Overview: Shown here is a 123-nucleotide sequence from Cucumis sativus, a member of the family "MIR390 microRNA precursor family". A search with the family's covariance model found it, with a score of 95 bits.

[Rfam]
RNA sequence: CCGGAGAAUCUGUUAAGCUCAGGAGGGAUAGCGCCACCGAAUAUAAAGAAAGAUUACCGGAAUAUUCCUUCUCGUCGCCCUGCUUUCCGGCGCUAUCUAUCCUGAGUUUCAUGGCUUCUUCUU
Numbered sequence: 001c002c003g004g005a006g007a008a009u010c011u012g013u014u015a016a017g018c019u020c021a022g023g024a025g026g027g028a029u030a031g032c033g034c035c036a037c038c039g040a041a042u043a044u045a046a047a048g049a050a051a052g053a054u055u056a057c058c059g060g061a062a063u064a065u066u067c068c069u070u071c072u073c074g075u076c077g078c079c080c081u082g083c084u085u086u087c088c089g090g091c092g093c094u095a096u097c098u099a100u101c102c103u104g105a106g107u108u109u110c111a112u113g114g115c116u117u118c119u120u121c122u123u
Base pairs, nucleotide, nucleotide: 010114016108017107018106019105020104021103022102023101024100026098027097028096029095030094031093032092033091034090035089
Its family is annotated with miRNA-mediated post-transcriptional gene silencing and RISC complex in the Gene Ontology.